[Rfam]
RNA sequence: AAGUCUGAACUAUCAAGAGAGCUAUCCGUCGACAGUACUGAAAGCCAACAACUGUCAUGGAGUUGCUCUCUUUAUGGACAGGCUC
Numbered sequence: 001a002a003g004u005c006u007g008a009a010c011u012a013u014c015a016a017g018a019g020a021g022c023u024a025u026c027c028g029u030c031g032a033c034a035g036u037a038c039u040g041a042a043a044g045c046c047a048a049c050a051a052c053u054g055u056c057a058u059g060g061a062g063u064u065g066c067u068c069u070c071u072u073u074a075u076g077g078a079c080a081g082g083c084u085c
Stems, first nucleotide, its partner, number of pairs: 015072004020067003025061004031056003035052002
Rfam assigns this 85-nucleotide sequence from Penaeus vannamei to the family "mir-46/mir-47/mir-281 microRNA precursor family".
The literature on the family includes a 2003 paper in Genome Biol by Lai et al., "Computational identification of Drosophila microRNA genes".
The family's consensus secondary structure was predicted with RNAalifold.
The organism belongs to Penaeus, within Eukaryota.